[Rfam]
RNA sequence: CCGGCUCCGGUUCCCGUCCCCUACCUGCGUCCGCGCAGACGGGGCGACCCGGCGGCC
Numbered sequence: 001c002c003g004g005c006u007c008c009g010g011u012u013c014c015c016g017u018c019c020c021c022u023a024c025c026u027g028c029g030u031c032c033g034c035g036c037a038g039a040c041g042g043g044g045c046g047a048c049c050c051g052g053c054g055g056c057c
Stems, first nucleotide, its partner, number of pairs: 003057003007052004015046006022039001
This 57-nucleotide sequence belongs to the Rfam family "L31-Actinobacteria ribosomal protein leader". It is one of the family's seed sequences. By type it is a cis-regulatory leader. The family is grouped with related families in Rfam's "Ribosomal Protein L31 Leader clan". A reference for the family is Eckert and Weinberg (2020), "Discovery of 20 novel ribosomal leader candidates in bacteria and archaea", BMC Microbiol.